2dG-II purine riboswitch aptamer: a 70-nucleotide RNA sequence. For this family Rfam cites "Bioinformatic analysis of riboswitch structures uncovers variant classes with altered ligand specificity" (Weinberg et al., Proc Natl Acad Sci U S A, 2017). Pairs were carried over by alignment from the consensus structure, which is taken from published work.
RNA sequence: CCUGCCUGUAAUCCUUGAGAUUUGGUCAAGGAGCAUCCACCCCCGAACCUAAUGCGGGGUACCAGGAGAA
Numbered sequence: 001c002c003u004g005c006c007u008g009u010a011a012u013c014c015u016u017g018a019g020a021u022u023u024g025g026u027c028a029a030g031g032a033g034c035a036u037c038c039a040c041c042c043c044c045g046a047a048c049c050u051a052a053u054g055c056g057g058g059g060u061a062c063c064a065g066g067a068g069a070a
Base pairs, nucleotide, nucleotide: 003068005066006065007064008063012032013031014030015029016028017027018026042058043057044056045055047053